[Rfam]
RNA sequence: AGUACCUCUUUUUCUUGUCAUCCCAGUGCCCAGACACUGGGAUCCAGGAAACUUAACUCUAUACCAAGUAAAUGUACAAUAAGAACUAGAUUCCAGCGUCACGCGCUGGAAUGACACCAUUUGCUGUGCAAUUU
Numbered sequence: 001a002g003u004a005c006c007u008c009u010u011u012u013u014c015u016u017g018u019c020a021u022c023c024c025a026g027u028g029c030c031c032a033g034a035c036a037c038u039g040g041g042a043u044c045c046a047g048g049a050a051a052c053u054u055a056a057c058u059c060u061a062u063a064c065c066a067a068g069u070a071a072a073u074g075u076a077c078a079a080u081a082a083g084a085a086c087u088a089g090a091u092u093c094c095a096g097c098g099u100c101a102c103g104c105g106c107u108g109g110a111a112u113g114a115c116a117c118c119a120u121u122u123g124c125u126g127u128g129c130a131a132u133u134u
Base pairs, nucleotide, nucleotide: 002129003128004127005126016116017115018114019113020112021111023109024108025107026106027105028104029103033100034099035098037096038095039094040093041092042091043090044089046087047086
The record is a 134-nucleotide RNA sequence from Trichonephila inaurata, which matches "Wolbachia sRNA 46" in Rfam.
Pairs were carried over by alignment from the consensus structure.
The source organism's lineage runs through Eukaryota, Protostomia, Ecdysozoa, Araneoidea and Trichonephila inaurata.
It scores 68 bits against the family's covariance model.
On this family, see Mayoral et al., Proc Natl Acad Sci U S A 2014: "Wolbachia small noncoding RNAs and their role in cross-kingdom communications".